The record is a 60-nucleotide RNA sequence from Clostridium polyendosporum, which matches "RAGATH-18 RNA" in Rfam. The family's RNA type in Rfam is small RNA. The base pairs follow the family's consensus structure, which is taken from published work. Rfam describes the family as follows. Actinobacteria, Firmicutes, Fusobacteria, Thermotogae (1 example).

RNA sequence: CCUAUGGAGUAUUACAGCAAACCAGAGUAGCUUAGGCAAAAUGGGACACUAUAGUAGGAA
Numbered sequence: 001c002c003u004a005u006g007g008a009g010u011a012u013u014a015c016a017g018c019a020a021a022c023c024a025g026a027g028u029a030g031c032u033u034a035g036g037c038a039a040a041a042u043g044g045g046a047c048a049c050u051a052u053a054g055u056a057g058g059a060a
Stems, first nucleotide, its partner, number of pairs: 001058005009049002012046002022044003030037002